Rfam assigns this 394-nucleotide RNA from Pseudonocardia halophobica to the family "Bacterial RNase P class A". The base pairs follow the family's consensus structure, which is taken from published work. The match comes from Rfam's covariance-model search (277 bits).

RNA sequence: CGAGCUGGCCGGGCGACCGCGUCGGCAUCACGCCGCCGAGGAAAGUCCGGACUCCGCAGGGCAGGGUGGUUGUCAACGGCAACCCGGGGCGACCCGCGGGACAGUGCCACAGAAAACAGACCGCCGUGCGCCCCCGGGCGCGCGGUAAGGGUGAAACGGUGGUGUAAGAGACCACCAGCACCCCGGGUGACCGGGGUGGCUCGGUAAACCCCACCCGGAGCAAGGCCAAGAGGCCUCCCCCGGGAGGCUGCGCAGGUGUUCGAGGACGGCCCGUCCGAGCCUGCGGGUAGGCCGCUCGAGCCUGCCGGCGACGGCAGGCCUAGAUGGAUGGUCGCCGAACGGAGCGCCGCGAGGCGCCCGGGAACAGGAUCCGGCUUACAGGCCAGCUCGUCCG
Numbered sequence: 001c002g003a004g005c006u007g008g009c010c011g012g013g014c015g016a017c018c019g020c021g022u023c024g025g026c027a028u029c030a031c032g033c034c035g036c037c038g039a040g041g042a043a044a045g046u047c048c049g050g051a052c053u054c055c056g057c058a059g060g061g062c063a064g065g066g067u068g069g070u071u072g073u074c075a076a077c078g079g080c081a082a083c084c085c086g087g088g089g090c091g092a093c094c095c096g097c098g099g100g101a102c103a104g105u106g107c108c109a110c111a112g113a114a115a116a117c118a119g120a121c122c123g124c125c126g127u128g129c130g131c132c133c134c135c136g137g138g139c140g141c142g143c144g145g146u147a148a149g150g151g152u153g154a155a156a157c158g159g160u161g162g163u164g165u166a167a168g169a170g171a172c173c174a175c176c177a178g179c180a181c182c183c184c185g186g187g188u189g190a191c192c193g194g195g196g197u198g199g200c201u202c203g204g205u206a207a208a209c210c211c212c213a214c215c216c217g218g219a220g221c222a223a224g225g226c227c228a229a230g231a232g233g234c235c236u237c238c239c240c241c242g243g244g245a246g247g248c249u250g251c252g253c254a255g256g257u258g259u260u261c262g263a264g265g266a267c268g269g270c271c272c273g274u275c276c277g278a279g280c281c282u283g284c285g286g287g288u289a290g291g292c293c294g295c296u297c298g299a300g301c302c303u304g305c306c307g308g309c310g311a312c313g314g315c316a317g318g319c320c321u322a323g324a325u326g327g328a329u330g331g332u333c334g335c336c337g338a339a340c341g342g343a344g345c346g347c348c349g350c351g352a353g354g355c356g357c358c359c360g361g362g363a364a365c366a367g368g369a370u371c372c373g374g375c376u377u378a379c380a381g382g383c384c385a386g387c388u389c390g391u392c393c394g
Stems, first nucleotide, its partner, number of pairs: 001390010011379001012336007020038002023035004043377003047374005052220004059272004064216005069083005084098001085096004099211002104209002106205003121150002123146009158176006178200001179198008224293004252284006264276004300319008